[Rfam]
RNA sequence: CCCCUUUGCAAAGCGUGGAGGAACGCCUAUAUUCGACCUGUCUCGGCAACGGGACUAUGGGCAUAAACGCGCGUGGAAUAAGCGGUUCGGACCCGGGGGCGGUACCCGGCGGCUCCACCAUACAUCCCUUGUUGGGGGAACAUGGGGCCGAAAUAGGAUCGACGAACGUGUAAAGACGUAGCUUUGUCCCGGUGAGCUACCACCGUUAUCGGUGCGUAAAGCAUAAUUGCCAACAACAAUCGUGCUCCGGUUGCUCUGGCCGCGUAAGCGGUCCGAAAUACCGAAAUCUAAGUCCUCAGGCUUUGCAGCCUGAGGCGGGGUUCGCAGGCACCUGGCAACAGAAGCCUGCACU
Numbered sequence: 001c002c003c004c005u006u007u008g009c010a011a012a013g014c015g016u017g018g019a020g021g022a023a024c025g026c027c028u029a030u031a032u033u034c035g036a037c038c039u040g041u042c043u044c045g046g047c048a049a050c051g052g053g054a055c056u057a058u059g060g061g062c063a064u065a066a067a068c069g070c071g072c073g074u075g076g077a078a079u080a081a082g083c084g085g086u087u088c089g090g091a092c093c094c095g096g097g098g099g100c101g102g103u104a105c106c107c108g109g110c111g112g113c114u115c116c117a118c119c120a121u122a123c124a125u126c127c128c129u130u131g132u133u134g135g136g137g138g139a140a141c142a143u144g145g146g147g148c149c150g151a152a153a154u155a156g157g158a159u160c161g162a163c164g165a166a167c168g169u170g171u172a173a174a175g176a177c178g179u180a181g182c183u184u185u186g187u188c189c190c191g192g193u194g195a196g197c198u199a200c201c202a203c204c205g206u207u208a209u210c211g212g213u214g215c216g217u218a219a220a221g222c223a224u225a226a227u228u229g230c231c232a233a234c235a236a237c238a239a240u241c242g243u244g245c246u247c248c249g250g251u252u253g254c255u256c257u258g259g260c261c262g263c264g265u266a267a268g269c270g271g272u273c274c275g276a277a278a279u280a281c282c283g284a285a286a287u288c289u290a291a292g293u294c295c296u297c298a299g300g301c302u303u304u305g306c307a308g309c310c311u312g313a314g315g316c317g318g319g320g321u322u323c324g325c326a327g328g329c330a331c332c333u334g335g336c337a338a339c340a341g342a343a344g345c346c347u348g349c350a351c352u
Base pairs, nucleotide, nucleotide: 040055041054042053043052044051059189060188061187062186063185069182070181071179072178073177074176083168084167087165088164089163093109094108095107096106097105110150111149112148113147114146115145116144190205191204192203193202196215197214199213200212201211318333319332320331321330324349325348326347327346328345329344

Rfam assigns this 352-nucleotide sequence from Thetidibacter halocola to the family "Alphaproteobacteria transfer-messenger RNA". Lineage of the source: Bacteria > Pseudomonadati > Pseudomonadota > Roseobacteraceae > Thetidibacter. Its Rfam clan is "tRNA clan".